The family of this 103-nucleotide RNA from Photobacterium halotolerans is "TPP riboswitch aptamer (THI element)". Taxonomically the source falls in Photobacterium (Bacteria, Pseudomonadati, Gammaproteobacteria, Vibrionales).

[Rfam]
RNA sequence: GCCGUUCUCAUGGGGAGUCUUCGGGCUGAGAUCGUACGGCGUACGGGACCCAUUGAACCUGAACCAGAUCAUGCUGGCGGAGGAAUUGAGAAAAACUGAGAGA
Numbered sequence: 001g002c003c004g005u006u007c008u009c010a011u012g013g014g015g016a017g018u019c020u021u022c023g024g025g026c027u028g029a030g031a032u033c034g035u036a037c038g039g040c041g042u043a044c045g046g047g048a049c050c051c052a053u054u055g056a057a058c059c060u061g062a063a064c065c066a067g068a069u070c071a072u073g074c075u076g077g078c079g080g081a082g083g084a085a086u087u088g089a090g091a092a093a094a095a096c097u098g099a100g101a102g103a
Stems, first nucleotide, its partner, number of pairs: 006091005011052004017026003033045005058083003064077004
Dot-bracket structure: .....(((((((((..(((....)))......(((((...)))))...)))).....(((...((((......))))...)))...)))))............